Shown here is a 126-nucleotide sequence from Kryptolebias marmoratus, a member of the family "Small nucleolar RNA SNORA65". The family is grouped with related families in Rfam's "SNORA65 clan". About the family: U65 belongs to the H/ACA class of snoRNAs which are thought to guide the sites of modification of uridines to pseudouridines. Lineage of the source: Eukaryota > Deuterostomia > Clupeocephala > Atherinomorphae > Kryptolebias.
[Rfam]
RNA sequence: CCCGCUACUAUACCUGUCUGCCUGUGGCUGAGUAUACUCCAGUGGAGGCUCAGAGCAAACCCGGCUUUAGGAAACAGAGCUGUCCACAUGAAUGGACAACUCUGUGCCGAAAAGUCUGGAACACUA
Numbered sequence: 001c002c003c004g005c006u007a008c009u010a011u012a013c014c015u016g017u018c019u020g021c022c023u024g025u026g027g028c029u030g031a032g033u034a035u036a037c038u039c040c041a042g043u044g045g046a047g048g049c050u051c052a053g054a055g056c057a058a059a060c061c062c063g064g065c066u067u068u069a070g071g072a073a074a075c076a077g078a079g080c081u082g083u084c085c086a087c088a089u090g091a092a093u094g095g096a097c098a099a100c101u102c103u104g105u106g107c108c109g110a111a112a113a114g115u116c117u118g119g120a121a122c123a124c125u126a
Stems, first nucleotide, its partner, number of pairs: 005045005018032002020029001021027002060119002064116001065114004070108002075104005083096003